[Rfam]
RNA: Mammalian CPEB3 ribozyme
Organism: Chelonoidis abingdonii
RNA sequence: AGCCCUAUUGCGGGGGCCAUAUCAGGGGCAUUCAUGUUGCAGUCCUGUUGGAUUCUCUGAAUCUGAGACUGCUGCU
Numbered sequence: 001a002g003c004c005c006u007a008u009u010g011c012g013g014g015g016g017c018c019a020u021a022u023c024a025g026g027g028g029c030a031u032u033c034a035u036g037u038u039g040c041a042g043u044c045c046u047g048u049u050g051g052a053u054u055c056u057c058u059g060a061a062u063c064u065g066a067g068a069c070u071g072c073u074g075c076u
Base pairs, nucleotide, nucleotide: 014045015044016043017042021076023074024073025072027070028040029039030038049065050064051063052062053061054060055059